Rfam assigns this 122-nucleotide RNA sequence from Variovorax sp. MHTC-1 to the family "Glycine riboswitch aptamer". The match comes from Rfam's covariance-model search (58 bits).

RNA sequence: GAUCAACUAACUGGAGAGUGCCGCAGGGUGGGUCGUCCCGCCCGAGUGGCCGCCGAAGGUGCAAGCUGCUUCCAGGGUUGGAGGCUAGCGAAUCUCUCAGGCACAAGGACAGUGGGGGCCGC
Numbered sequence: 001g002a003u004c005a006a007c008u009a010a011c012u013g014g015a016g017a018g019u020g021c022c023g024c025a026g027g028g029u030g031g032g033u034c035g036u037c038c039c040g041c042c043c044g045a046g047u048g049g050c051c052g053c054c055g056a057a058g059g060u061g062c063a064a065g066c067u068g069c070u071u072c073c074a075g076g077g078u079u080g081g082a083g084g085c086u087a088g089c090g091a092a093u094c095u096c097u098c099a100g101g102c103a104c105a106a107g108g109a110c111a112g113u114g115g116g117g118g119c120c121g122c
Stems, first nucleotide, its partner, number of pairs: 007116002010113004020050004052102003055098002059096001061094001065089004